[Rfam]
RNA sequence: AACAUUAUCCGACCCCGAGCCUGUUUUCCUAAGUCUAGCGAUAUGGAAACUGUGCCUGUAAUUGAUUGAUUACACAGGGAAAGUUGAGAAAUCGGCUCUCCUCUCAUAUUUAGAAAGGUGUCACAUUGCAAAUC
Numbered sequence: 001a002a003c004a005u006u007a008u009c010c011g012a013c014c015c016c017g018a019g020c021c022u023g024u025u026u027u028c029c030u031a032a033g034u035c036u037a038g039c040g041a042u043a044u045g046g047a048a049a050c051u052g053u054g055c056c057u058g059u060a061a062u063u064g065a066u067u068g069a070u071u072a073c074a075c076a077g078g079g080a081a082a083g084u085u086g087a088g089a090a091a092u093c094g095g096c097u098c099u100c101c102u103c104u105c106a107u108a109u110u111u112a113g114a115a116a117g118g119u120g121u122c123a124c125a126u127u128g129c130a131a132a133u134c
Base pairs, nucleotide, nucleotide: 003128004127006125011122012121013120015118016117019055020054022052023051025049026048027047028046029045033042034041035040057074058073059072060071061070077102078101079100080099082097083096084095085094086093087092103113104112